Annotation: A member of the RNA family "Small nucleolar RNA Z279/snoR105/snoR108" from Corymbia citriodora, 110 nucleotides long. About the family: This family includes the plant snoRNAs known as Z279, snoR105 and snoR108. The base pairs follow the family's consensus structure, which was predicted with PFOLD. The match comes from Rfam's covariance-model search (73 bits).

RNA sequence: GGGGGAUGAUGAGUGGUCAGUGCUCGCGAUUAAAAGGUGCGAGAUGGGUGUACCGACCCAGCCUGGUUACGACAACCCGGGCACUCCAAUCUUUUGUACCUUCUGAUCCC
Numbered sequence: 001g002g003g004g005g006a007u008g009a010u011g012a013g014u015g016g017u018c019a020g021u022g023c024u025c026g027c028g029a030u031u032a033a034a035a036g037g038u039g040c041g042a043g044a045u046g047g048g049u050g051u052a053c054c055g056a057c058c059c060a061g062c063c064u065g066g067u068u069a070c071g072a073c074a075a076c077c078c079g080g081g082c083a084c085u086c087c088a089a090u091c092u093u094u095u096g097u098a099c100c101u102u103c104u105g106a107u108c109c110c
Stems, first nucleotide, its partner, number of pairs: 001110004015100003023043005046086006064079002066076002
Description:
Its Rfam clan is "snoU13 clan". On this family, see Marker et al., Curr Biol 2002: "Experimental RNomics: identification of 140 candidates for small non-messenger RNAs in the plant Arabidopsis thaliana". Lineage of the source: Eukaryota > Euphyllophyta > Magnoliopsida > Corymbia > Corymbia citriodora.